[Rfam]
RNA sequence: GGUUGCAUUACAGGGCAAAAUCUCCUCUGGCAGCCACCUAUGAAUUCUAGUGUGCUCUCUGCCAAUGGAGAUUUGCCCCGCAAUUCCACU
Numbered sequence: 001g002g003u004u005g006c007a008u009u010a011c012a013g014g015g016c017a018a019a020a021u022c023u024c025c026u027c028u029g030g031c032a033g034c035c036a037c038c039u040a041u042g043a044a045u046u047c048u049a050g051u052g053u054g055c056u057c058u059c060u061g062c063c064a065a066u067g068g069a070g071a072u073u074u075g076c077c078c079c080g081c082a083a084u085u086c087c088a089c090u
Stems, first nucleotide, its partner, number of pairs: 005086001007084003011080001013078007022070004028064006036056001
This 90-nucleotide RNA sequence from Gossypium trilobum belongs to the Rfam family "mir-399 microRNA precursor family". A reference for the family is Jones-Rhoades and Bartel (2004), "Computational Identification of Plant MicroRNAs and Their Targets, Including a Stress-Induced miRNA", Mol Cell. Rfam describes the family as follows. mir-399 was identified in both Arabidopsis thaliana and Oryza sativa computationally and was later experimentally verified. mir-399 is thought to target mRNAs coding for a phosphatase transporter. The mature sequence is excised from the 3' arm of the hairpin. The base pairs follow the family's consensus structure, which was predicted with PFOLD.